Rfam assigns this 86-nucleotide RNA from Streptomyces fagopyri to the family "Streptomyces RNA 6106". By type it is a small RNA. For this family Rfam cites "Deep sequencing-based identification of small non-coding RNAs in Streptomyces coelicolor" (Vockenhuber et al., RNA Biol, 2011).

RNA sequence: ACGCCGCCUGUGCGGCGUUCGUGCUCCCCGCCACGGGGCCAGAGAGCGGGGGUGGUGCCGUGUCGGCGCAGCACCACCCCCGCGCC
Numbered sequence: 001a002c003g004c005c006g007c008c009u010g011u012g013c014g015g016c017g018u019u020c021g022u023g024c025u026c027c028c029c030g031c032c033a034c035g036g037g038g039c040c041a042g043a044g045a046g047c048g049g050g051g052g053u054g055g056u057g058c059c060g061u062g063u064c065g066g067c068g069c070a071g072c073a074c075c076a077c078c079c080c081c082g083c084g085c086c
Base pairs, nucleotide, nucleotide: 001018002017003016004015005014006013007012019045020044022042026038027037028036029035030034046083047082048081049080050079051078052077053076054075055074056073057072058071060069061068062067